[Rfam]
RNA sequence: UGCACCAGAAGAGGCGCGUCACCCAGGCAGUAUGUCAGAGAAUCCGUAUUCAUUGACGGCAUAUCAGGGGGAGUGACGCCGAGACGAUAAACAUACGGGCUGUUUAUUUGUCGGCUACAGGGGCUGAAUCCCUUGAGUUGUCACCAAUACAUCAGUUGAUGUUAAUGACGUUAGGUGGGGGGCUUCUGAGUAG
Numbered sequence: 001u002g003c004a005c006c007a008g009a010a011g012a013g014g015c016g017c018g019u020c021a022c023c024c025a026g027g028c029a030g031u032a033u034g035u036c037a038g039a040g041a042a043u044c045c046g047u048a049u050u051c052a053u054u055g056a057c058g059g060c061a062u063a064u065c066a067g068g069g070g071g072a073g074u075g076a077c078g079c080c081g082a083g084a085c086g087a088u089a090a091a092c093a094u095a096c097g098g099g100c101u102g103u104u105u106a107u108u109u110g111u112c113g114g115c116u117a118c119a120g121g122g123g124c125u126g127a128a129u130c131c132c133u134u135g136a137g138u139u140g141u142c143a144c145c146a147a148u149a150c151a152u153c154a155g156u157u158g159a160u161g162u163u164a165a166u167g168a169c170g171u172u173a174g175g176u177g178g179g180g181g182g183c184u185u186c187u188g189a190g191u192a193g
Stems, first nucleotide, its partner, number of pairs: 006188006016079007024071001030064007083112003086108008113139004118135006141178005147172001
RNA: Lysine riboswitch aptamer
Organism: bacteria symbiont BFo2 of Frankliniella occidentalis